[Rfam]
RNA: Small Cajal body specific RNA 8
Organism: Gasterosteus aculeatus
RNA sequence: UGGGAGGCAGAUACCUGGGCACUCCUGAGUAGUUCUGUCCGCCACUAGUCCUCCCUACAGCAUCCCUGCUCUCUGAUGACCGAGGCGAACUGAGAGAAAUCGCCACGGACAGAUACGGAGCAGACAAUC
Numbered sequence: 001u002g003g004g005a006g007g008c009a010g011a012u013a014c015c016u017g018g019g020c021a022c023u024c025c026u027g028a029g030u031a032g033u034u035c036u037g038u039c040c041g042c043c044a045c046u047a048g049u050c051c052u053c054c055c056u057a058c059a060g061c062a063u064c065c066c067u068g069c070u071c072u073c074u075g076a077u078g079a080c081c082g083a084g085g086c087g088a089a090c091u092g093a094g095a096g097a098a099a100u101c102g103c104c105a106c107g108g109a110c111a112g113a114u115a116c117g118g119a120g121c122a123g124a125c126a127a128u129c
Stems, first nucleotide, its partner, number of pairs: 002055006016041003019035001021033002066123007080108003085103004